The family of this 600-nucleotide part of an RNA from Kordia sp. SMS9 is "Bacterial small subunit ribosomal RNA".
Clan: SSU clan.
The family's consensus secondary structure is taken from published work.
RNA sequence: UGACGGGGGCCCGCACAAGCGGUGGAGCAUGUGGUUUAAUUCGAUGCAACGCGAGGAACCUUACCAGGGCUUAAAUGUAGGAUGCAUUAGUUAGAGAUAGCUAUUUCUUCGGACUUCUUACAAGGUGCUGCAUGGUUGUCGUCAGCUCGUGCCGUGAGGUGUCAGGUUAAGUCCUAUAACGAGCGCAACCCCUGUUGUUAGUUACCAGCACGUAAUGGUGGGGACUCUAACAAGACUGCCGGUGCAAACCGCGAGGAAGGUGGGGAUGACGUCAAAUCAUCACGGCCCUUACGUCCUGGGCUACACACGUGCUACAAUGGUAGGUACAGAGAGCAGCCACGUCGCAAGGCGGAGCGAAUCUACAAAACCUAUCUCAGUUCGGAUCGGAGUCUGCAACUCGACUCCGUGAAGCUGGAAUCGCUAGUAAUCGGAUAUCAGCCAUGAUCCGGUGAAUACGUUCCCGGGCCUUGUACACACCGCCCGUCAAGCCAUGGAAGCUGGGGGUACCUGAAGUCGGUGACCGUAAGGAGCUGCCUAGGGUAAAACUAGUAACUGGGGCUAAGUCGUAACAAGGUAGCCGUACCGGAAGGUGCGGCUGGA
Numbered sequence: 001u002g003a004c005g006g007g008g009g010c011c012c013g014c015a016c017a018a019g020c021g022g023u024g025g026a027g028c029a030u031g032u033g034g035u036u037u038a039a040u041u042c043g044a045u046g047c048a049a050c051g052c053g054a055g056g057a058a059c060c061u062u063a064c065c066a067g068g069g070c071u072u073a074a075a076u077g078u079a080g081g082a083u084g085c086a087u088u089a090g091u092u093a094g095a096g097a098u099a100g101c102u103a104u105u106u107c108u109u110c111g112g113a114c115u116u117c118u119u120a121c122a123a124g125g126u127g128c129u130g131c132a133u134g135g136u137u138g139u140c141g142u143c144a145g146c147u148c149g150u151g152c153c154g155u156g157a158g159g160u161g162u163c164a165g166g167u168u169a170a171g172u173c174c175u176a177u178a179a180c181g182a183g184c185g186c187a188a189c190c191c192c193u194g195u196u197g198u199u200a201g202u203u204a205c206c207a208g209c210a211c212g213u214a215a216u217g218g219u220g221g222g223g224a225c226u227c228u229a230a231c232a233a234g235a236c237u238g239c240c241g242g243u244g245c246a247a248a249c250c251g252c253g254a255g256g257a258a259g260g261u262g263g264g265g266a267u268g269a270c271g272u273c274a275a276a277u278c279a280u281c282a283c284g285g286c287c288c289u290u291a292c293g294u295c296c297u298g299g300g301c302u303a304c305a306c307a308c309g310u311g312c313u314a315c316a317a318u319g320g321u322a323g324g325u326a327c328a329g330a331g332a333g334c335a336g337c338c339a340c341g342u343c344g345c346a347a348g349g350c351g352g353a354g355c356g357a358a359u360c361u362a363c364a365a366a367a368c369c370u371a372u373c374u375c376a377g378u379u380c381g382g383a384u385c386g387g388a389g390u391c392u393g394c395a396a397c398u399c400g401a402c403u404c405c406g407u408g409a410a411g412c413u414g415g416a417a418u419c420g421c422u423a424g425u426a427a428u429c430g431g432a433u434a435u436c437a438g439c440c441a442u443g444a445u446c447c448g449g450u451g452a453a454u455a456c457g458u459u460c461c462c463g464g465g466c467c468u469u470g471u472a473c474a475c476a477c478c479g480c481c482c483g484u485c486a487a488g489c490c491a492u493g494g495a496a497g498c499u500g501g502g503g504g505u506a507c508c509u510g511a512a513g514u515c516g517g518u519g520a521c522c523g524u525a526a527g528g529a530g531c532u533g534c535c536u537a538g539g540g541u542a543a544a545a546c547u548a549g550u551a552a553c554u555g556g557g558g559c560u561a562a563g564u565c566g567u568a569a570c571a572a573g574g575u576a577g578c579c580g581u582a583c584c585g586g587a588a589g590g591u592g593c594g595g596c597u598g599g600a
Stems, first nucleotide, its partner, number of pairs: 001474002003471003007468007015458002019421005024315001026313008034304002040055004064299007076122003080118003084114001088103006106113002124288002127286004133282002135277003138273001140271002145184006151160003164175003190265004195233007205222002209220003236256002239253001240251004319373007332361002336355002341350003380411001385406007427450007477573001479570001482566002487560004492555003497550005505542004513535001515533004521528002575598010